[Rfam]
RNA sequence: CCGUGCAGCCGGGGAGAUAGCGGUGCCCUGUACCUGCAAUCCGCUCCAGCAGGGGUGAUAUCCCGCCUCGGAUGCUGGUUUUGCAGGGCUGCCCCUGGUAAGCAGCGUUGACGUUUGGGUCUUGCGCAACAGAGCCUCAUGAACCGUGUCAGGGCAGGAAUGCAGCAGCACUAAGUGGGAUCCUCUGUGUGCCGCGAGGCAGCCUGGACCGAGCCGGCUGCCAGGGUAACGCCUGUGAGCCACAUACAAAGCGGGAUGCACGG
Numbered sequence: 001c002c003g004u005g006c007a008g009c010c011g012g013g014g015a016g017a018u019a020g021c022g023g024u025g026c027c028c029u030g031u032a033c034c035u036g037c038a039a040u041c042c043g044c045u046c047c048a049g050c051a052g053g054g055g056u057g058a059u060a061u062c063c064c065g066c067c068u069c070g071g072a073u074g075c076u077g078g079u080u081u082u083g084c085a086g087g088g089c090u091g092c093c094c095c096u097g098g099u100a101a102g103c104a105g106c107g108u109u110g111a112c113g114u115u116u117g118g119g120u121c122u123u124g125c126g127c128a129a130c131a132g133a134g135c136c137u138c139a140u141g142a143a144c145c146g147u148g149u150c151a152g153g154g155c156a157g158g159a160a161u162g163c164a165g166c167a168g169c170a171c172u173a174a175g176u177g178g179g180a181u182c183c184u185c186u187g188u189g190u191g192c193c194g195c196g197a198g199g200c201a202g203c204c205u206g207g208a209c210c211g212a213g214c215c216g217g218c219u220g221c222c223a224g225g226g227u228a229a230c231g232c233c234u235g236u237g238a239g240c241c242a243c244a245u246a247c248a249a250a251g252c253g254g255g256a257u258g259c260a261c262g263g
Base pairs, nucleotide, nucleotide: 001263002262003261004260005259006258007257008056009055010054011029012028013027014026016024018022033053034052035051036050037049061256062255063254064253065252066251070247072245073244074243076242077241078240079239080238082237083236084235085234086233090228091227094225095224096223097222098221099220102218103217105214106213113209114208115207116206117205118204119203120202121198122197123196124195125194126193127189128188130187131186132185133184134183136179137178138177139176140175146171147170148169149168154163155162156161
About this RNA:
This 263-nucleotide RNA from bacterium 1XD21-70 belongs to the Rfam family "Bacterial large signal recognition particle RNA". It is annotated as a non-coding RNA gene. The signal recognition particle (SRP) is a universally conserved ribonucleoprotein involved in the co-translational targeting of proteins to membranes.